DUF1874 RNA: a 98-nucleotide sequence.
RNA sequence: GUUAGCCCUGGACCAAGUCUGGAGAUGGCCAUACAAGGUAAGACCGUCCAUAGGGCGGCGCCAUCUCCACCAAAAGGGCUUGGUCUUAGGGUGGAGGC
Numbered sequence: 001g002u003u004a005g006c007c008c009u010g011g012a013c014c015a016a017g018u019c020u021g022g023a024g025a026u027g028g029c030c031a032u033a034c035a036a037g038g039u040a041a042g043a044c045c046g047u048c049c050a051u052a053g054g055g056c057g058g059c060g061c062c063a064u065c066u067c068c069a070c071c072a073a074a075a076g077g078g079c080u081u082g083g084u085c086u087u088a089g090g091g092u093g094g095a096g097g098c
Base pairs, nucleotide, nucleotide: 006091007090008089009088014082015081016080017079021068022067023066024065025064026063027062028061029060042059044058045057046056047055048054070077071076